[Rfam]
RNA sequence: GCAGCUCACCUUAUAAGGCUUAGCCACUCGUCAGUUAGUCAGUCUUGGAGCCUGUUGGGUAACCUGUAGUUUUAACUAUGGGCGGAUAAAAGAUAGGGGGUCACAAACCAUGGCGGUUAAGAGAUUGUCUCCCAAAUUAAUCUCAAUCCUGGAGGGCCAAUACUUUGAACCGAGCAGAAGGUUAUACGGUACCAAUUGUACAGGGCAAGACUGCUACUACUUCCUCGGGGUUGUAGACCU
Numbered sequence: 001g002c003a004g005c006u007c008a009c010c011u012u013a014u015a016a017g018g019c020u021u022a023g024c025c026a027c028u029c030g031u032c033a034g035u036u037a038g039u040c041a042g043u044c045u046u047g048g049a050g051c052c053u054g055u056u057g058g059g060u061a062a063c064c065u066g067u068a069g070u071u072u073u074a075a076c077u078a079u080g081g082g083c084g085g086a087u088a089a090a091a092g093a094u095a096g097g098g099g100g101u102c103a104c105a106a107a108c109c110a111u112g113g114c115g116g117u118u119a120a121g122a123g124a125u126u127g128u129c130u131c132c133c134a135a136a137u138u139a140a141u142c143u144c145a146a147u148c149c150u151g152g153a154g155g156g157c158c159a160a161u162a163c164u165u166u167g168a169a170c171c172g173a174g175c176a177g178a179a180g181g182u183u184a185u186a187c188g189g190u191a192c193c194a195a196u197u198g199u200a201c202a203g204g205g206c207a208a209g210a211c212u213g214c215u216a217c218u219a220c221u222u223c224c225u226c227g228g229g230g231u232u233g234u235a236g237a238c239c240u
Stems, first nucleotide, its partner, number of pairs: 010034002013031001017029002020026001021208001023206002038087003042083004046078002048073003052069004057064002127231005151224005156182003161176001163174002188218004193213002196210002
The record is a 240-nucleotide RNA from Thermanaeromonas toyohensis, which matches "Group II catalytic intron D1-D4-6" in Rfam. On this family, see Lehmann and Schmidt, Crit Rev Biochem Mol Biol 2003: "Group II introns: structure and catalytic versatility of large natural ribozymes". A search with the family's covariance model found it, with a score of 50 bits. The source organism's lineage runs through Bacteria, Clostridia, Neomoorellaceae, Thermanaeromonas and Thermanaeromonas toyohensis. Group II introns are found in rRNA, tRNA and mRNA of organelles in fungi, plants and protists, and also in mRNA in bacteria.